[Rfam]
RNA sequence: AACGUUCAUCCCGUUAGGGGACGGAAGUAAGCAAUCAAGCUGAAGGAACGCACU
Numbered sequence: 001a002a003c004g005u006u007c008a009u010c011c012c013g014u015u016a017g018g019g020g021a022c023g024g025a026a027g028u029a030a031g032c033a034a035u036c037a038a039g040c041u042g043a044a045g046g047a048a049c050g051c052a053c054u
Stems, first nucleotide, its partner, number of pairs: 003050005009021004024051001030041003
Glutamine riboswitch aptamer (glnA leader): a 54-nucleotide RNA sequence. Pairs were carried over by alignment from the consensus structure, which is taken from published work. Gene Ontology term of the family: glutamine binding. Rfam's curators put it in the seed alignment. For this family Rfam cites "Bacterial aptamers that selectively bind glutamine" (Ames and Breaker, RNA Biol, 2011).